[Rfam]
TPP riboswitch aptamer (THI element): a 109-nucleotide RNA from Rathayibacter sp. Leaf294.

RNA sequence: CUGACGAACACGGGAGUCCGGUGCACCGGGCUGAGAGGAAGGCACGCAGCCUUCGACCGUCGAACCUGAUCUGGGUCAUGCCAGCGAAGGAACGUUUCGAUCUCCUCUU
Numbered sequence: 001c002u003g004a005c006g007a008a009c010a011c012g013g014g015a016g017u018c019c020g021g022u023g024c025a026c027c028g029g030g031c032u033g034a035g036a037g038g039a040a041g042g043c044a045c046g047c048a049g050c051c052u053u054c055g056a057c058c059g060u061c062g063a064a065c066c067u068g069a070u071c072u073g074g075g076u077c078a079u080g081c082c083a084g085c086g087a088a089g090g091a092a093c094g095u096u097u098c099g100a101u102c103u104c105c106u107c108u109u
Base pairs, nucleotide, nucleotide: 006097007096008095009094010060011059012058013057016031017030018029019028020027038054039053040052041051042050065090066089067088071084072083073082074081